[Rfam]
RNA sequence: UGCUUAUCAAGAGUGGUGGAGGGACUGGCCCUGUGAAACCCGGCAACCAGAUCGUUAUGAUCAUGGUGCUAAUUCCAACAGACGAAAUCGUCUGGGAGAUGAGCG
Numbered sequence: 001u002g003c004u005u006a007u008c009a010a011g012a013g014u015g016g017u018g019g020a021g022g023g024a025c026u027g028g029c030c031c032u033g034u035g036a037a038a039c040c041c042g043g044c045a046a047c048c049a050g051a052u053c054g055u056u057a058u059g060a061u062c063a064u065g066g067u068g069c070u071a072a073u074u075c076c077a078a079c080a081g082a083c084g085a086a087a088u089c090g091u092c093u094g095g096g097a098g099a100u101g102a103g104c105g
Stems, first nucleotide, its partner, number of pairs: 001105008013041001015040003021031003026077003042070004047066002050062004074097001079094006
RNA: SAM riboswitch aptamer (S box leader)
Organism: Exiguobacterium chiriqhucha